[Rfam]
RNA sequence: UUAUGGCCGGCGCCUAAUCCCAGGUGCCCCGCCUGGGAGCCGGGGACCCAUUCGGUUCUUGGGGUGAAUCCACUCAGGUGGUAGGGCGUCUCCAGCCCGAACCCGUCAGCUAACCCGGCCGGCAGAUGGAGAGGAGAG
Numbered sequence: 001u002u003a004u005g006g007c008c009g010g011c012g013c014c015u016a017a018u019c020c021c022a023g024g025u026g027c028c029c030c031g032c033c034u035g036g037g038a039g040c041c042g043g044g045g046a047c048c049c050a051u052u053c054g055g056u057u058c059u060u061g062g063g064g065u066g067a068a069u070c071c072a073c074u075c076a077g078g079u080g081g082u083a084g085g086g087c088g089u090c091u092c093c094a095g096c097c098c099g100a101a102c103c104c105g106u107c108a109g110c111u112a113a114c115c116c117g118g119c120c121g122g123c124a125g126a127u128g129g130a131g132a133g134g135a136g137a138g
Base pairs, nucleotide, nucleotide: 012123013122014121018038019037020036021035022034023033024032025031026030039119040118041117042116043115044114049061050060062104063103064102070081071080072079073078084098085097086096087095
c-di-AMP riboswitch aptamer (ydaO/yuaA leader): a 138-nucleotide sequence from Sphaerisporangium rufum.
The match comes from Rfam's covariance-model search (88 bits).
About the family: This family represents a conserved RNA structure found upstream of the ydaO and yuaA genes in Bacillus subtilis and related genes in other bacteria.
The literature on the family includes a 2004 paper in Proc Natl Acad Sci U S A by Barrick et al., "New RNA motifs suggest an expanded scope for riboswitches in bacterial genetic control".